Description
This 102-nucleotide sequence from Macaca fascicularis belongs to the Rfam family "Y RNA". Pairs were carried over by alignment from the consensus structure, which is taken from published work. From the family's description: Y RNAs are components of the Ro ribonucleoprotein particle (Ro RNP), in association with Ro60 and La proteins. The Y RNAs and Ro60 and La proteins are well conserved, but the function of the Ro RNP is not known. In humans the RNA component can be one of four small RNAs -- hY1, hY3, hY4 and hY5. These small RNAs are predicted to fold into a conserved secondary structure containing three stem structures. By type it is a non-coding RNA gene.
[Rfam]
RNA sequence: GGCUGGUCCAAGUCCAAUGGUGUUUACAACUAAUCAGUCACAACCAGUAGCAGAUUUCUUUGUUCCUUCUCUUCUCUCACUGCUUCACCUGACCAGCUUAAA
Numbered sequence: 001g002g003c004u005g006g007u008c009c010a011a012g013u014c015c016a017a018u019g020g021u022g023u024u025u026a027c028a029a030c031u032a033a034u035c036a037g038u039c040a041c042a043a044c045c046a047g048u049a050g051c052a053g054a055u056u057u058c059u060u061u062g063u064u065c066c067u068u069c070u071c072u073u074c075u076c077u078c079a080c081u082g083c084u085u086c087a088c089c090u091g092a093c094c095a096g097c098u099u100a101a102a
Stems, first nucleotide, its partner, number of pairs: 001098008010090001016081001018079003022076001028064003032060002